The family of this 79-nucleotide RNA from Rosa chinensis is "Small nucleolar RNA J33". The literature on the family includes a 2003 paper in Nucleic Acids Res by Chen et al., "The high diversity of snoRNAs in plants: identification and comparative study of 120 snoRNA genes from Oryza sativa". Its family is annotated with nucleolus and RNA processing in the Gene Ontology.
RNA sequence: CUGUAAAGGGGAUGAUGUAUUAUUUUCGAGCUCUUAAGAUGUUGGCUUUCUGGAUUCUGCAUCACAGAUGGACAUUCGG
Numbered sequence: 001c002u003g004u005a006a007a008g009g010g011g012a013u014g015a016u017g018u019a020u021u022a023u024u025u026u027c028g029a030g031c032u033c034u035u036a037a038g039a040u041g042u043u044g045g046c047u048u049u050c051u052g053g054a055u056u057c058u059g060c061a062u063c064a065c066a067g068a069u070g071g072a073c074a075u076u077c078g079g
Stems, first nucleotide, its partner, number of pairs: 001079003005076002